[Rfam]
RNA sequence: GUGCGCUCCGGGGCUCGGUGGAAGUCCGAACCGGCGGUGACAGUCCGCGACCCGGCGCCCUCGCGCUCGAGGCGCCGGCCGACCCGGUGGAAUUCCGGGACCGACGGUGAAAGUCCGGAUGGGAGGAAGCGCAC
Numbered sequence: 001g002u003g004c005g006c007u008c009c010g011g012g013g014c015u016c017g018g019u020g021g022a023a024g025u026c027c028g029a030a031c032c033g034g035c036g037g038u039g040a041c042a043g044u045c046c047g048c049g050a051c052c053c054g055g056c057g058c059c060c061u062c063g064c065g066c067u068c069g070a071g072g073c074g075c076c077g078g079c080c081g082a083c084c085c086g087g088u089g090g091a092a093u094u095c096c097g098g099g100a101c102c103g104a105c106g107g108u109g110a111a112a113g114u115c116c117g118g119a120u121g122g123g124a125g126g127a128a129g130c131g132c133a134c
Base pairs, nucleotide, nucleotide: 003132004131005130006129007127008126009125016028017027018026030114031113032103033102034048035047036046037045043101044100052078053077054076055075056074083099084098085097086096087095105117106116107115
This 134-nucleotide sequence from Saccharopolyspora rectivirgula belongs to the Rfam family "FMN riboswitch aptamer (RFN element)".
Rfam 15.1 lists 6,230 matches to the family in 5,120 species.
It scores 89 bits against the family's covariance model.
The RFN element is a highly conserved domain that is found frequently in the 5'-untranslated regions of prokaryotic mRNAs that encode for flavin mononucleotide (FMN) biosynthesis and transport proteins.